RNA sequence: GAAACCAGCGAGGGGUGCCAUUGGAGUAUACCCUUGUCCAUGGGUAUCAUUCCUUUGGCUGAGAUCAUACCCUAAAUUACCUGAUCCGGGUUAUACCGGCGGAGGGACUGCUGCGUUGUUGCUAC
Numbered sequence: 001g002a003a004a005c006c007a008g009c010g011a012g013g014g015g016u017g018c019c020a021u022u023g024g025a026g027u028a029u030a031c032c033c034u035u036g037u038c039c040a041u042g043g044g045u046a047u048c049a050u051u052c053c054u055u056u057g058g059c060u061g062a063g064a065u066c067a068u069a070c071c072c073u074a075a076a077u078u079a080c081c082u083g084a085u086c087c088g089g090g091u092u093a094u095a096c097c098g099g100c101g102g103a104g105g106g107a108c109u110g111c112u113g114c115g116u117u118g119u120u121g122c123u124a125c
Base pairs, nucleotide, nucleotide: 006113007112008111009110010109011073012072013071014070016067017059018058019057020056080105081104082103086099087098088097089096